Background:
The record is a 165-nucleotide sequence from Tombusvirus necropelargonii, which matches "Tombusvirus 3' cap-independent translation element" in Rfam. It scores 156 bits against the family's covariance model. A reference for the family is Nicholson et al. (2013), "Tombusvirus Y-shaped translational enhancer forms a complex with eIF4F and can be functionally replaced by heterologous translational enhancers", J Virol.
RNA sequence: UGUAGAUUUGGUCCGCAUGAUGACGAGUUAGGUCAGGCCCCGCGCCAGGUUUGGUCACCUGGGGGAUGGGGACACGGAAAGGAUCUCGCAUGCUGUUAGUCUGACGAAAGUCGAGCUUGCAAUGUGGGUCUAUGCCUAAAUAAGUCGUGUGGGUUGCCGCCUACA
Numbered sequence: 001u002g003u004a005g006a007u008u009u010g011g012u013c014c015g016c017a018u019g020a021u022g023a024c025g026a027g028u029u030a031g032g033u034c035a036g037g038c039c040c041c042g043c044g045c046c047a048g049g050u051u052u053g054g055u056c057a058c059c060u061g062g063g064g065g066a067u068g069g070g071g072a073c074a075c076g077g078a079a080a081g082g083a084u085c086u087c088g089c090a091u092g093c094u095g096u097u098a099g100u101c102u103g104a105c106g107a108a109a110g111u112c113g114a115g116c117u118u119g120c121a122a123u124g125u126g127g128g129u130c131u132a133u134g135c136c137u138a139a140a141u142a143a144g145u146c147g148u149g150u151g152g153g154u155u156g157c158c159g160c161c162u163a164c165a
Stems, first nucleotide, its partner, number of pairs: 001165005009159004013152009025137001027136001029134001033077002038071005045062006081131005087126005094121003098117002101115002103112003